[Rfam]
RNA: terC RNA
RNA sequence: CGCCACCACCGGGCCCCUCUGGCGCGCGCUACCGGAGCGCUCGCGAUGUCGGCGGGAUUG
Number, nucleotide and partner (000 for none) at each position: 001c000002g000003c000004c000005a000006c055007c054008a000009c052010c051011g050012g049013g000014c000015c000016c000017c000018u000019c000020u000021g000022g044023c043024g042025c000026g040027c039028g038029c037030u000031a000032c000033c000034g000035g000036a000037g029038c028039g027040c026041u000042c024043g023044c022045g000046a000047u000048g000049u012050c011051g010052g009053c000054g007055g006056g000057a000058u000059u000060g000